[Rfam]
RNA sequence: GCGAGGUGACGAAAGAAAUUCAUGUAUGUCAGUACACUGAUAACAGUGUGAUGUUACUGUGAAUCCCGACAGGUUCUGAUCGC
Numbered sequence: 001g002c003g004a005g006g007u008g009a010c011g012a013a014a015g016a017a018a019u020u021c022a023u024g025u026a027u028g029u030c031a032g033u034a035c036a037c038u039g040a041u042a043a044c045a046g047u048g049u050g051a052u053g054u055u056a057c058u059g060u061g062a063a064u065c066c067c068g069a070c071a072g073g074u075u076c077u078g079a080u081c082g083c
Stems, first nucleotide, its partner, number of pairs: 001083004